[Rfam]
RNA sequence: UGGAUGUGAUGAGUGGUAAAGACUUGCAUACAAUAUGCAAGAGGGGUGUCCGCCCCAGCCUUGUUACGACUGGGGGCACUCAAUCUUUAGACCAAUCUGAUCCU
Numbered sequence: 001u002g003g004a005u006g007u008g009a010u011g012a013g014u015g016g017u018a019a020a021g022a023c024u025u026g027c028a029u030a031c032a033a034u035a036u037g038c039a040a041g042a043g044g045g046g047u048g049u050c051c052g053c054c055c056c057a058g059c060c061u062u063g064u065u066a067c068g069a070c071u072g073g074g075g076g077c078a079c080u081c082a083a084u085c086u087u088u089a090g091a092c093c094a095a096u097c098u099g100a101u102c103c104u
Stems, first nucleotide, its partner, number of pairs: 002103003014094004023041005044081007061074002064072001

Small nucleolar RNA Z279/snoR105/snoR108: a 104-nucleotide sequence from Phaseolus vulgaris. The source organism's lineage runs through Eukaryota, Streptophyta, Embryophyta, Pentapetalae and Phaseolus. The literature on the family includes a 2002 paper in Curr Biol by Marker et al., "Experimental RNomics: identification of 140 candidates for small non-messenger RNAs in the plant Arabidopsis thaliana". This family includes the plant snoRNAs known as Z279, snoR105 and snoR108. It scores 69 bits against the family's covariance model.